[Rfam]
RNA sequence: ACACGGGAAAGGAGGUGGUCCACAGAAUGCAUGCUUCUAGGACACGUGAGGUGGCUGCGCGCUAGCGCUACCGCCCUCGUCGGCGUCGACGCGCUGACGAAUCCGAACGCAGUCACCCGACCCGCAGGCGACCGGUCAGUCCUCCGGUUCCAUCCCGCACCACGUGGGACGCCUGCGGGUCGCUGCGC
Numbered sequence: 001a002c003a004c005g006g007g008a009a010a011g012g013a014g015g016u017g018g019u020c021c022a023c024a025g026a027a028u029g030c031a032u033g034c035u036u037c038u039a040g041g042a043c044a045c046g047u048g049a050g051g052u053g054g055c056u057g058c059g060c061g062c063u064a065g066c067g068c069u070a071c072c073g074c075c076c077u078c079g080u081c082g083g084c085g086u087c088g089a090c091g092c093g094c095u096g097a098c099g100a101a102u103c104c105g106a107a108c109g110c111a112g113u114c115a116c117c118c119g120a121c122c123c124g125c126a127g128g129c130g131a132c133c134g135g136u137c138a139g140u141c142c143u144c145c146g147g148u149u150c151c152a153u154c155c156c157g158c159a160c161c162a163c164g165u166g167g168g169a170c171g172c173c174u175g176c177g178g179g180u181c182g183c184u185g186c187g188c
Stems, first nucleotide, its partner, number of pairs: 015058005060099002063096006072085003118182013131148005